[Rfam]
RNA sequence: CUUCUUGAGAGGGAGCGUGGCCUGGGGUUGUAGGUGUUCUUGUGCAGUGUGUUGUGGAAGGUGCGUGUGGGCCGAGUGUAUGAAUGGACGCAUGAAUGAACGCGUGAAUGGGUGUGCAAGGUGAGCGAAUGAUUCCUCAGCGCCCCCUCCCCCCCCCCGUCUACACUUUGAUCUUAUUUGAUCGGGUUGUGACCCCAGCCUCGCCGGGCCUCCCCGAAAUGAAAAGUUCCCCUCCUGCGAAGCCCCCUCCUCGGGGCACUGUGCAGUGAGGCCCCACGGGCGGCGGCAGCGCCCUGGUUCCGAGGUCCCGGAGCUGGUCCUGCGGUCCGGCGCUCAGAAGUGAUGAAUUGAUCAGAUAGACGAGGCCGGGCCUGCCCCGGGCCGCUGAUUACCAAGGCGAUUCUGAUCUGA
Numbered sequence: 001c002u003u004c005u006u007g008a009g010a011g012g013g014a015g016c017g018u019g020g021c022c023u024g025g026g027g028u029u030g031u032a033g034g035u036g037u038u039c040u041u042g043u044g045c046a047g048u049g050u051g052u053u054g055u056g057g058a059a060g061g062u063g064c065g066u067g068u069g070g071g072c073c074g075a076g077u078g079u080a081u082g083a084a085u086g087g088a089c090g091c092a093u094g095a096a097u098g099a100a101c102g103c104g105u106g107a108a109u110g111g112g113u114g115u116g117c118a119a120g121g122u123g124a125g126c127g128a129a130u131g132a133u134u135c136c137u138c139a140g141c142g143c144c145c146c147c148u149c150c151c152c153c154c155c156c157c158c159g160u161c162u163a164c165a166c167u168u169u170g171a172u173c174u175u176a177u178u179u180g181a182u183c184g185g186g187u188u189g190u191g192a193c194c195c196c197a198g199c200c201u202c203g204c205c206g207g208g209c210c211u212c213c214c215c216g217a218a219a220u221g222a223a224a225a226g227u228u229c230c231c232c233u234c235c236u237g238c239g240a241a242g243c244c245c246c247c248u249c250c251u252c253g254g255g256g257c258a259c260u261g262u263g264c265a266g267u268g269a270g271g272c273c274c275c276a277c278g279g280g281c282g283g284c285g286g287c288a289g290c291g292c293c294c295u296g297g298u299u300c301c302g303a304g305g306u307c308c309c310g311g312a313g314c315u316g317g318u319c320c321u322g323c324g325g326u327c328c329g330g331c332g333c334u335c336a337g338a339a340g341u342g343a344u345g346a347a348u349u350g351a352u353c354a355g356a357u358a359g360a361c362g363a364g365g366c367c368g369g370g371c372c373u374g375c376c377c378c379g380g381g382c383c384g385c386u387g388a389u390u391a392c393c394a395a396g397g398c399g400a401u402u403c404u405g406a407u408c409u410g411a
Base pairs, nucleotide, nucleotide: 049149053065054064055063056062086101089098090097104143105142106141109129177225178224179223182217183216184215185214189210191209194208195207196206198204199203249305250304251303252302254301255300256299258298259297260296263295266292267291268290271287272286273285274283275282313331314330315329316328317327319325320324335410336409337408338407345403346402347401348400349399350398364383365382366381367380369378370377
Small Cajal body-specific RNA 2: a 411-nucleotide RNA from Fukomys damarensis.
The family's RNA type in Rfam is small Cajal body RNA.
The literature on the family includes a 2004 paper in Curr Biol by Tycowski et al., "Guide RNAs with 5' caps and novel box C/D snoRNA-like domains for modification of snRNAs in metazoa".
Rfam 15.1 lists 612 matches to the family in 498 species.
Lineage of the source: Eukaryota > Deuterostomia > Dipnotetrapodomorpha > Bathyergidae > Fukomys.